[Rfam]
RNA: Plant small nucleolar RNA U3
Organism: Gossypium harknessii
RNA sequence: ACGACCUUAUGUAAACAAAAUAUGUUCUAUAGGCUCGUACCUCUGUAGCCUUUAGUUUAAAAGAGACAGAAUUUCAAGUCUGGUUGAUGAACUGAGAGUAUGUGAUCAGAGCGUGAUUAUUGGUUCUGUGAUGCCUUGUUGCCUCACCUUCACCAUAGAGGACCGUUCUCAGCUUGCCUUGUCUUGUUGGGAUGGUGACAUAGUUGUUCAAUAGACU
Numbered sequence: 001a002c003g004a005c006c007u008u009a010u011g012u013a014a015a016c017a018a019a020a021u022a023u024g025u026u027c028u029a030u031a032g033g034c035u036c037g038u039a040c041c042u043c044u045g046u047a048g049c050c051u052u053u054a055g056u057u058u059a060a061a062a063g064a065g066a067c068a069g070a071a072u073u074u075c076a077a078g079u080c081u082g083g084u085u086g087a088u089g090a091a092c093u094g095a096g097a098g099u100a101u102g103u104g105a106u107c108a109g110a111g112c113g114u115g116a117u118u119a120u121u122g123g124u125u126c127u128g129u130g131a132u133g134c135c136u137u138g139u140u141g142c143c144u145c146a147c148c149u150u151c152a153c154c155a156u157a158g159a160g161g162a163c164c165g166u167u168c169u170c171a172g173c174u175u176g177c178c179u180u181g182u183c184u185u186g187u188u189g190g191g192a193u194g195g196u197g198a199c200a201u202a203g204u205u206g207u208u209c210a211a212u213a214g215a216c217u
Stems, first nucleotide, its partner, number of pairs: 001038002003035001005033003014026004043069004049063001051061003078216005097204001099202005105196004110167004121155004128147004133142002169190005176183001